RNA sequence: GGAGGCGUGCGAGCGCCUGGUGGGCUCCCCGGCCUUCAAAGCCGGCGGACCCGAGCAUCUCGGGUCGGCGGGUUCGAUUCCCGUACGCCUCC
Numbered sequence: 001g002g003a004g005g006c007g008u009g010c011g012a013g014c015g016c017c018u019g020g021u022g023g024g025c026u027c028c029c030c031g032g033c034c035u036u037c038a039a040a041g042c043c044g045g046c047g048g049a050c051c052c053g054a055g056c057a058u059c060u061c062g063g064g065u066c067g068g069c070g071g072g073u074u075c076g077a078u079u080c081c082c083g084u085a086c087g088c089c090u091c092c
Base pairs, nucleotide, nucleotide: 001092002091003090004089005088006087007086008085009084011027012026013025014024016023017022029045030044031043032042033041048066049065050064051063052062069083070082071081072080